Rfam assigns this 403-nucleotide sequence from Thalassovita litoralis to the family "Bacterial RNase P class A". Rfam classes the family as a ribozyme. The base pairs follow the family's consensus structure, which is taken from published work. For this family Rfam cites "Ribonuclease P: unity and diversity in a tRNA processing ribozyme" (Frank and Pace, Annu Rev Biochem, 1998). A search with the family's covariance model found it, with a score of 298 bits. The source organism's lineage runs through Bacteria, Pseudomonadota, Alphaproteobacteria, Rhodobacterales and Thalassovita.
RNA sequence: GCGGAAGGCUGGAUGGCCGCUUGUGCCGGGAUACCGGCGCGGGAGGAAAGUCCGGACUCCACAAGGCAAGGGUGCCGGGUAACGCCCGGCGGGGGCAACCCCAGGGAAAGCGCCACAGAAAACAGACCGCCCCUGUCCGCAGGGGUCAGGGUGAAACGGUAGGGUAAGAGCCUACCGCGGGACUGGCAACAGGACCGGCACGGCAAGCCCCACCCGGAGCAAUGCCGAAUAGGGACCUCGCGCGGGGUUGAUCGGGUUCGCCCGAUAUCGCCGCAGGGUAGGCUUUGGCCCAGAGGUCCGGGUUGGCAGCUAUAGGCGCGUUGGUAACAGCGCGUUCAGAUGAAUGGUCAUCCAGAGGGGGCAACCCCUUGGACAGAAUCCGGCUUACAGGCCUUCCGCGCAU
Numbered sequence: 001g002c003g004g005a006a007g008g009c010u011g012g013a014u015g016g017c018c019g020c021u022u023g024u025g026c027c028g029g030g031a032u033a034c035c036g037g038c039g040c041g042g043g044a045g046g047a048a049a050g051u052c053c054g055g056a057c058u059c060c061a062c063a064a065g066g067c068a069a070g071g072g073u074g075c076c077g078g079g080u081a082a083c084g085c086c087c088g089g090c091g092g093g094g095g096c097a098a099c100c101c102c103a104g105g106g107a108a109a110g111c112g113c114c115a116c117a118g119a120a121a122a123c124a125g126a127c128c129g130c131c132c133c134u135g136u137c138c139g140c141a142g143g144g145g146u147c148a149g150g151g152u153g154a155a156a157c158g159g160u161a162g163g164g165u166a167a168g169a170g171c172c173u174a175c176c177g178c179g180g181g182a183c184u185g186g187c188a189a190c191a192g193g194a195c196c197g198g199c200a201c202g203g204c205a206a207g208c209c210c211c212a213c214c215c216g217g218a219g220c221a222a223u224g225c226c227g228a229a230u231a232g233g234g235a236c237c238u239c240g241c242g243c244g245g246g247g248u249u250g251a252u253c254g255g256g257u258u259c260g261c262c263c264g265a266u267a268u269c270g271c272c273g274c275a276g277g278g279u280a281g282g283c284u285u286u287g288g289c290c291c292a293g294a295g296g297u298c299c300g301g302g303u304u305g306g307c308a309g310c311u312a313u314a315g316g317c318g319c320g321u322u323g324g325u326a327a328c329a330g331c332g333c334g335u336u337c338a339g340a341u342g343a344a345u346g347g348u349c350a351u352c353c354a355g356a357g358g359g360g361g362c363a364a365c366c367c368c369u370u371g372g373a374c375a376g377a378a379u380c381c382g383g384c385u386u387a388c389a390g391g392c393c394u395u396c397c398g399c400g401c402a403u
Base pairs, nucleotide, nucleotide: 001399002398003397004396005395006394007393008392009391010390011388012352013351014350015349016348017347018346020043021042022041023040024039025038026037027036028035048386049385050384052383053382054381055380056379057219058218059217060216065285066284070215071214072213073212074211075089076088077087078086079085090104091102092101093100094099105210106209110208111207112204113203114202127150128149129146130145131144132143133142134141135140158176159175160174161173162172163171177199178197179196180195183192184191185190223308224307225306226305233299234298235297236296237295238294276290277289279287280286316335317334318333319332320331321330322329323328